[Rfam]
RNA sequence: GAAUCCUUUAUGAUGAACCAUUUCGGAUGUAAACACAAAUUCCACUGAAUUGCGCAAACAAUCUCGUGUUGAUAUUUCCGUUGCCUUCCUUCUGAUCUACACU
Number, nucleotide and partner (000 for none) at each position: 001g000002a000003a000004u101005c000006c000007u000008u000009u000010a000011u000012g000013a000014u000015g000016a000017a000018c000019c000020a000021u000022u000023u000024c080025g079026g078027a077028u000029g000030u000031a000032a000033a000034c000035a000036c000037a000038a000039a000040u000041u000042c000043c000044a000045c000046u000047g000048a000049a000050u000051u000052g000053c000054g000055c000056a000057a000058a000059c000060a000061a000062u000063c000064u000065c000066g000067u000068g000069u000070u000071g000072a000073u000074a000075u000076u000077u027078c026079c025080g024081u000082u000083g000084c000085c000086u000087u000088c000089c000090u000091u000092c000093u000094g000095a000096u000097c000098u000099a000100c000101a004102c000103u000
The family of this 103-nucleotide sequence from Xylariales sp. No.14919 is "Small nucleolar RNA Z13/snr52". It is annotated as a C/D-box small nucleolar RNA.